[Rfam]
RNA: Small nucleolar RNA SNORA12
RNA sequence: UCUUGUGGUGGUUUCUGUGCUUGGCAGACCUGUCACUGUGGCAGAGUGGCCUCAGGCUACCACAGAGAUGAGAAAAGGAGAUGACUGUGCUGAGAACUUUUCCAAGCUUUUAGUUUUCAGCCUUUUUAUAUCUUCUACAGGG
Numbered sequence: 001u002c003u004u005g006u007g008g009u010g011g012u013u014u015c016u017g018u019g020c021u022u023g024g025c026a027g028a029c030c031u032g033u034c035a036c037u038g039u040g041g042c043a044g045a046g047u048g049g050c051c052u053c054a055g056g057c058u059a060c061c062a063c064a065g066a067g068a069u070g071a072g073a074a075a076a077g078g079a080g081a082u083g084a085c086u087g088u089g090c091u092g093a094g095a096a097c098u099u100u101u102c103c104a105a106g107c108u109u110u111u112a113g114u115u116u117u118c119a120g121c122c123u124u125u126u127u128a129u130a131u132c133u134u135c136u137a138c139a140g141g142g
Stems, first nucleotide, its partner, number of pairs: 005063007023051003027047001030044003077135006104125003